Description: c-di-AMP riboswitch aptamer (ydaO/yuaA leader): a 157-nucleotide RNA sequence from Streptomyces fructofermentans. Lineage of the source: Bacteria > Bacillati > Actinomycetes > Streptomycetaceae > Streptomyces. Pairs were carried over by alignment from the consensus structure.
[Rfam]
RNA sequence: AGUCAUCCAUCACUCGCACACGGCAGGAGCGGGGGACCCAGGUAAGUCGCCGGUCCGGUCCCCGGAACGGCUAGGGGUGAAGUCGCGUACAGCACGCGGCCGGGCAUCUCCCGCCCGAACCCGACAGCUCACCUCGCAGGCGCCGGAGAGGAAAAGC
Number, nucleotide and partner (000 for none) at each position: 001a000002g000003u028004c027005a000006u000007c000008c000009a000010u000011c000012a000013c000014u000015c000016g000017c000018a000019c000020a000021c000022g000023g000024c000025a000026g000027g004028a003029g137030c136031g135032g134033g133034g132035g000036a000037c000038c000039c074040a000041g000042g000043u000044a000045a000046g000047u000048c000049g000050c000051c000052g000053g000054u000055c000056c000057g000058g000059u000060c000061c000062c000063c000064g000065g000066a000067a000068c000069g000070g000071c000072u000073a000074g039075g122076g121077g120078u000079g000080a000081a000082g000083u099084c098085g097086c096087g000088u000089a000090c000091a000092g000093c000094a000095c000096g086097c085098g084099g083100c000101c000102g116103g115104g114105c113106a000107u000108c000109u000110c000111c000112c000113g105114c104115c103116c102117g000118a000119a000120c077121c076122c075123g000124a000125c000126a000127g000128c000129u000130c000131a000132c034133c033134u032135c031136g030137c029138a000139g000140g000141c000142g000143c000144c000145g000146g000147a000148g000149a000150g000151g000152a000153a000154a000155a000156g000157c000